[Rfam]
RNA sequence: CCAUAUCGGUGCUGACGUUAGGAACGAUGUAGAAAUAUGGAGUUUCUAAGACGGUGCUGACGUUAGCACCGUCUUAGAAACUCCAUAUUUCUACAUCGUUCCUAACGUCAGCACCGAUGUU
Numbered sequence: 001c002c003a004u005a006u007c008g009g010u011g012c013u014g015a016c017g018u019u020a021g022g023a024a025c026g027a028u029g030u031a032g033a034a035a036u037a038u039g040g041a042g043u044u045u046c047u048a049a050g051a052c053g054g055u056g057c058u059g060a061c062g063u064u065a066g067c068a069c070c071g072u073c074u075u076a077g078a079a080a081c082u083c084c085a086u087a088u089u090u091c092u093a094c095a096u097c098g099u100u101c102c103u104a105a106c107g108u109c110a111g112c113a114c115c116g117a118u119g120u121u
Stems, first nucleotide, its partner, number of pairs: 004119004009114012022101015038085003042081012055068004
RNA: MIR4374 microRNA precursor family